Background:
The record is a 51-nucleotide RNA from Moellerella wisconsensis, which matches "L31-Gammaproteobacteria ribosomal protein leader" in Rfam. The organism belongs to Moellerella, within Bacteria. Clan: Ribosomal Protein L31 Leader clan. Rfam's curators put it in the seed alignment.
[Rfam]
RNA sequence: CGUGUGGUGUCCGGCGUUAGGGCGGGAUGGCGACACGGCCUUAAUAGAGGU
Number, nucleotide and partner (000 for none) at each position: 001c037002g036003u035004g034005u033006g000007g031008u030009g000010u000011c026012c025013g000014g023015c022016g000017u000018u000019a000020g000021g000022g015023c014024g000025g012026g011027a000028u000029g000030g008031c007032g000033a005034c004035a003036c002037g001038g000039c000040c000041u000042u000043a000044a000045u000046a000047g000048a000049g000050g000051u000
For this family Rfam cites "Discovery of 20 novel ribosomal leader candidates in bacteria and archaea" (Eckert and Weinberg, BMC Microbiol, 2020).
Rfam classes the family as a cis-regulatory leader.
The family's consensus secondary structure is taken from published work.